[Rfam]
RNA sequence: GGCGGCGGCCGUGACUGGCGAAGGUGGAUCACCACCGGGGAGCGGCCGGACACGGAUGCGGGCACCGACCGCCUGGGCGCCUCCA
Numbered sequence: 001g002g003c004g005g006c007g008g009c010c011g012u013g014a015c016u017g018g019c020g021a022a023g024g025u026g027g028a029u030c031a032c033c034a035c036c037g038g039g040g041a042g043c044g045g046c047c048g049g050a051c052a053c054g055g056a057u058g059c060g061g062g063c064a065c066c067g068a069c070c071g072c073c074u075g076g077g078c079g080c081c082u083c084c085a
Base pairs, nucleotide, nucleotide: 006048007047008046009045010044011043012042015039016038017073018072019071020070024035025034026033027032062080063079065077066076
Shown here is an 85-nucleotide sequence from Actinoallomurus iriomotensis, a member of the family "ZMP/ZTP riboswitch aptamer (pfl RNA motif)". NCBI's taxonomy places the organism under Bacteria, Bacillati, Actinomycetota, Actinomycetes, Actinoallomurus. The base pairs follow the family's consensus structure, which is taken from published work.